[Rfam]
RNA: Small nucleolar RNA SNORA11
RNA sequence: AGGGUGUGCUCAGAGCAGGUGGCCUGAAGAAUGGCUUCUCUGUUUAUAACACAUCCAACAGGAAUUUAAGGUCACUGUGACAAGGGGCACAAAAUUUGUGACUUCCCAUUGAGCAAAUGUCCCACAUAU
Numbered sequence: 001a002g003g004g005u006g007u008g009c010u011c012a013g014a015g016c017a018g019g020u021g022g023c024c025u026g027a028a029g030a031a032u033g034g035c036u037u038c039u040c041u042g043u044u045u046a047u048a049a050c051a052c053a054u055c056c057a058a059c060a061g062g063a064a065u066u067u068a069a070g071g072u073c074a075c076u077g078u079g080a081c082a083a084g085g086g087g088c089a090c091a092a093a094a095u096u097u098g099u100g101a102c103u104u105c106c107c108a109u110u111g112a113g114c115a116a117a118u119g120u121c122c123c124a125c126a127u128a129u
Stems, first nucleotide, its partner, number of pairs: 002056007013045007021037001022035003070121003076115003081111002084104003088100005